[Rfam]
RNA sequence: CUACGCAAGGAUCGCCAUCCACCAGCGCGUUGCGCCCGUGGGUGCGAAACCG
Dot-bracket structure: ...............(((((((..((((...))))..)))))))........
Rfam assigns this 52-nucleotide RNA sequence from Roseinatronobacter ekhonensis to the family "ffh sRNA". Lineage of the source: Bacteria > Pseudomonadota > Alphaproteobacteria > Paracoccaceae > Roseinatronobacter. Pairs were carried over by alignment from the consensus structure, which is taken from published work.